The record is a 70-nucleotide RNA sequence from Acidiphilium cryptum, which matches "Makes More Granules Regulator RNA (mmgR)" in Rfam. SuhB later renamed mmgR (makes more granules regulator) was a putative non-coding RNA found multiple times in the Agrobacterium tumefaciens genome and related alpha-proteobacteria. The base pairs follow the family's consensus structure. The literature on the family includes a 2016 paper in Mol Phylogenet Evol by Lagares et al., "Phylogenetic distribution and evolutionary pattern of an alpha-proteobacterial small RNA gene that controls polyhydroxybutyrate accumulation in Sinorhizobium meliloti". A search with the family's covariance model found it, with a score of 50 bits.
[Rfam]
RNA sequence: CUGCCUCGCCUUUUUGGACGUUUCCUCCCUAAACUUGGCGGCCUCAAUGGCCGCCAUUUUUUUGCCCCUC
Numbered sequence: 001c002u003g004c005c006u007c008g009c010c011u012u013u014u015u016g017g018a019c020g021u022u023u024c025c026u027c028c029c030u031a032a033a034c035u036u037g038g039c040g041g042c043c044u045c046a047a048u049g050g051c052c053g054c055c056a057u058u059u060u061u062u063u064g065c066c067c068c069u070c
Stems, first nucleotide, its partner, number of pairs: 008019001010017002037055007